Overview
A member of the RNA family "Small nucleolar RNA SNORA1" from Gallus gallus, 132 nucleotides long. It is annotated as an H/ACA-box small nucleolar RNA.

[Rfam]
RNA sequence: CGCCUUGUUAUUCAGCAGGUAGACACAACUCCAUGUGUGUCUCAAUUGAAGAACGGGGCUAGAAGAGCAACAGGUUGUGCUUUCCUCACUGUAACACCCAUUGCAGUGGUGACAAUGAGACCUGUGACAGGU
Numbered sequence: 001c002g003c004c005u006u007g008u009u010a011u012u013c014a015g016c017a018g019g020u021a022g023a024c025a026c027a028a029c030u031c032c033a034u035g036u037g038u039g040u041c042u043c044a045a046u047u048g049a050a051g052a053a054c055g056g057g058g059c060u061a062g063a064a065g066a067g068c069a070a071c072a073g074g075u076u077g078u079g080c081u082u083u084c085c086u087c088a089c090u091g092u093a094a095c096a097c098c099c100a101u102u103g104c105a106g107u108g109g110u111g112a113c114a115a116u117g118a119g120a121c122c123u124g125u126g127a128c129a130g131g132u
Base pairs, nucleotide, nucleotide: 002059003058004057006055007054008053021042022041023040024039025038026037027036070125071124072123073122074121084111086109087108088107089106
NCBI's taxonomy places the organism under Eukaryota, Deuterostomia, Sarcopterygii, Phasianinae, Gallus. ACA1 is a member of the H/ACA class of snoRNA that guide the sites of modification of uridines to pseudouridines.